[Rfam]
RNA sequence: CAAGUCCAGCCCGGUCAAAGUCGUAGCGGACAGGCCGGUAGCGAGUGUUGCCAUUCGUCGGGUGACUGGCGGGUGCGAAGCGUACACAGUGAGUAAGCAGGCCGUGAGGAUUCAGCUCCGAAAUCUUUUCCUCGUUGCGAUGCCGACGCCGUUAUGAGGGCGGAAGGCAGCAUCCGAGCCACCGUUAUGCGAGGUGAACUCGGGGUCGCCGGAGUCCCUAGCCC
Numbered sequence: 001c002a003a004g005u006c007c008a009g010c011c012c013g014g015u016c017a018a019a020g021u022c023g024u025a026g027c028g029g030a031c032a033g034g035c036c037g038g039u040a041g042c043g044a045g046u047g048u049u050g051c052c053a054u055u056c057g058u059c060g061g062g063u064g065a066c067u068g069g070c071g072g073g074u075g076c077g078a079a080g081c082g083u084a085c086a087c088a089g090u091g092a093g094u095a096a097g098c099a100g101g102c103c104g105u106g107a108g109g110a111u112u113c114a115g116c117u118c119c120g121a122a123a124u125c126u127u128u129u130c131c132u133c134g135u136u137g138c139g140a141u142g143c144c145g146a147c148g149c150c151g152u153u154a155u156g157a158g159g160g161c162g163g164a165a166g167g168c169a170g171c172a173u174c175c176g177a178g179c180c181a182c183c184g185u186u187a188u189g190c191g192a193g194g195u196g197a198a199c200u201c202g203g204g205g206u207c208g209c210c211g212g213a214g215u216c217c218c219u220a221g222c223c224c
Stems, first nucleotide, its partner, number of pairs: 012037005020031003024192001026190002039092001041090002045087004049082002051077001052075010115215006137209005142168003147162004173204004180196004

Annotation: The record is a 224-nucleotide RNA, which matches "Group II catalytic intron D1-D4-6" in Rfam. Group II introns are found in rRNA, tRNA and mRNA of organelles in fungi, plants and protists, and also in mRNA in bacteria. It is one of the family's seed sequences.